[Rfam]
RNA sequence: GGGGGCAUAGCUCAGUGGUAGAGCACUCGCCUGCAGAGCGAUAAGCCCCGGUUCGAAUCCGGGUGCCCCUU
Numbered sequence: 001g002g003g004g005g006c007a008u009a010g011c012u013c014a015g016u017g018g019u020a021g022a023g024c025a026c027u028c029g030c031c032u033g034c035a036g037a038g039c040g041a042u043a044a045g046c047c048c049c050g051g052u053u054c055g056a057a058u059c060c061g062g063g064u065g066c067c068c069c070u071u
Base pairs, nucleotide, nucleotide: 001070002069003068004067005066006065007064010024011023012022013021027041028040029039030038047063048062049061050060051059
RNA: tRNA